A member of the RNA family "mir-181 microRNA precursor family" from Chanos chanos, 83 nucleotides long. Its family is annotated with miRNA-mediated post-transcriptional gene silencing and RISC complex in the Gene Ontology. Rfam 15.1 lists 3,490 matches to the family in 650 species. Pairs were carried over by alignment from the consensus structure, which was predicted with PFOLD. It scores 76 bits against the family's covariance model.
RNA sequence: UGUCCUCAAGGAACAUUCAACGCUGUCGGUGAGUUUGAGCAUCUGCCAGAAACCAUCGACCGUUGACUGUACCCUGCGGACCG
Numbered sequence: 001u002g003u004c005c006u007c008a009a010g011g012a013a014c015a016u017u018c019a020a021c022g023c024u025g026u027c028g029g030u031g032a033g034u035u036u037g038a039g040c041a042u043c044u045g046c047c048a049g050a051a052a053c054c055a056u057c058g059a060c061c062g063u064u065g066a067c068u069g070u071a072c073c074c075u076g077c078g079g080a081c082c083g
Stems, first nucleotide, its partner, number of pairs: 001083002004079002007076002014069002017066006025060007033053004
The literature on the family includes a 2001 paper in Cell by Ambros, "microRNAs: tiny regulators with great potential".